[Rfam]
RNA: permuted transfer-messenger RNA
RNA sequence: GGCGAUAAACGGUCAGUGCAAUAAGCCUAUCGGACCCGGGGGCGGUACCCGGCGCCUCCACCCAAAUCCGUGGCGAACCGAACGCAUUCGGGAAGUCGCGGAUUUCGGCGGGGGCGAAAUAGGAUCGACGAGGGUGUAAAGACUGUGCUUUCGCUCGGCAUGGUUCCGCCGAUAUCGGGCCAUCUUUAUAGUUGCCAACGACAACUAUGCUAUGGACAACGCUGUCGCCGCGUAA
Numbered sequence: 001g002g003c004g005a006u007a008a009a010c011g012g013u014c015a016g017u018g019c020a021a022u023a024a025g026c027c028u029a030u031c032g033g034a035c036c037c038g039g040g041g042g043c044g045g046u047a048c049c050c051g052g053c054g055c056c057u058c059c060a061c062c063c064a065a066a067u068c069c070g071u072g073g074c075g076a077a078c079c080g081a082a083c084g085c086a087u088u089c090g091g092g093a094a095g096u097c098g099c100g101g102a103u104u105u106c107g108g109c110g111g112g113g114g115c116g117a118a119a120u121a122g123g124a125u126c127g128a129c130g131a132g133g134g135u136g137u138a139a140a141g142a143c144u145g146u147g148c149u150u151u152c153g154c155u156c157g158g159c160a161u162g163g164u165u166c167c168g169c170c171g172a173u174a175u176c177g178g179g180c181c182a183u184c185u186u187u188a189u190a191g192u193u194g195c196c197a198a199c200g201a202c203a204a205c206u207a208u209g210c211u212a213u214g215g216a217c218a219a220c221g222c223u224g225u226c227g228c229c230g231c232g233u234a235a
Base pairs, nucleotide, nucleotide: 001155002154003153004152005151014145015144016143017142026134027133028132030131031130032129036052037051038050039049040048053116054115055114056113057112058111059110156171157170158169159168